[Rfam]
RNA sequence: CCCAGCAGUAGUCAGCUGUUGGGGCAGAACCGUUCCUGUAACAGUGUUACACUGCUGGGAGAGAAAUGUUCUGUCUUCUUCUCCAGUUGCCUUCAUCACUGUUCUGGUGGCGUCUGGCACUGGUUAGGGCAGAGCUGUGCUUCCUUGAGAGUGUGCUAAGCAUUCACUUUGGCUGCUUAGUUCUAGUCUGGAAGCAGACACA
Numbered sequence: 001c002c003c004a005g006c007a008g009u010a011g012u013c014a015g016c017u018g019u020u021g022g023g024g025c026a027g028a029a030c031c032g033u034u035c036c037u038g039u040a041a042c043a044g045u046g047u048u049a050c051a052c053u054g055c056u057g058g059g060a061g062a063g064a065a066a067u068g069u070u071c072u073g074u075c076u077u078c079u080u081c082u083c084c085a086g087u088u089g090c091c092u093u094c095a096u097c098a099c100u101g102u103u104c105u106g107g108u109g110g111c112g113u114c115u116g117g118c119a120c121u122g123g124u125u126a127g128g129g130c131a132g133a134g135c136u137g138u139g140c141u142u143c144c145u146u147g148a149g150a151g152u153g154u155g156c157u158a159a160g161c162a163u164u165c166a167c168u169u170u171g172g173c174u175g176c177u178u179a180g181u182u183c184u185a186g187u188c189u190g191g192a193a194g195c196a197g198a199c200a201c202a
Stems, first nucleotide, its partner, number of pairs: 001059009011050002015045006021037004068135009083123003086118004094110001097109004138196007153183001155181001157179006
Small nucleolar RNA SNORA74: a 202-nucleotide RNA from Odocoileus virginianus.
About the family: U19 belongs to the H/ACA class of snoRNAs. snoRNAs bind a number of proteins (including dyskerin, Gar1p and Nop10p in the case of the H/ACA class) to form snoRNP complexes. This class are thought to guide the sites of modification of uridines to pseudouridines by forming direct base pairing interactions with substrate RNAs.
The family is grouped with related families in Rfam's "SNORA74 clan".
For this family Rfam cites "Human U19 intron-encoded snoRNA is processed from a long primary transcript that possesses little potential for protein coding" (Bortolin and Kiss, RNA, 1998).
The family's consensus secondary structure was predicted with PFOLD.
Rfam links the family to the GO terms RNA processing and nucleolus.